[Rfam]
RNA sequence: ACUCAACACGAUUCAAUUAUGAAGGAUGAGUCUUAACUGUAAAAGCACGCCACUAUUGCUGAACUUGUUUCAGUUCUCAGGUGGAUUCUUGAUCAGUUAGUUAGUCCUAUACAUACCAUAAUGGAGUUU
Numbered sequence: 001a002c003u004c005a006a007c008a009c010g011a012u013u014c015a016a017u018u019a020u021g022a023a024g025g026a027u028g029a030g031u032c033u034u035a036a037c038u039g040u041a042a043a044a045g046c047a048c049g050c051c052a053c054u055a056u057u058g059c060u061g062a063a064c065u066u067g068u069u070u071c072a073g074u075u076c077u078c079a080g081g082u083g084g085a086u087u088c089u090u091g092a093u094c095a096g097u098u099a100g101u102u103a104g105u106c107c108u109a110u111a112c113a114u115a116c117c118a119u120a121a122u123g124g125a126g127u128u129u
Stems, first nucleotide, its partner, number of pairs: 023108005034099005043090003050084004
This 129-nucleotide RNA sequence from Polaribacter cellanae belongs to the Rfam family "6S-Flavo RNA".
It is annotated as a small RNA.